[Rfam]
Rfam assigns this 85-nucleotide RNA from Fukomys damarensis to the family "Small nucleolar RNA SNORD111". The match comes from Rfam's covariance-model search (83 bits). The base pairs follow the family's consensus structure, which was predicted with RNAalifold. The literature on the family includes a 2002 paper in Mol Cell Biol by Galardi et al., "Purified box C/D snoRNPs are able to reproduce site-specific 2'-O-methylation of target RNA in vitro". Rfam 15.1 lists 894 matches to the family in 541 species. The organism belongs to Fukomys, within Eukaryota. Gene Ontology terms of the family: RNA processing and nucleolus.
RNA sequence: UGGCCUGAAAUGAUGACUAAAUUUCAUGUCUCUUCUUUGACACCUGUCUGGAGAUAUUUUUUGCCUUAACAAUCUGAUCAGGCUG
Numbered sequence: 001u002g003g004c005c006u007g008a009a010a011u012g013a014u015g016a017c018u019a020a021a022u023u024u025c026a027u028g029u030c031u032c033u034u035c036u037u038u039g040a041c042a043c044c045u046g047u048c049u050g051g052a053g054a055u056a057u058u059u060u061u062u063g064c065c066u067u068a069a070c071a072a073u074c075u076g077a078u079c080a081g082g083c084u085g
Base pairs, nucleotide, nucleotide: 001085002084003083004082005081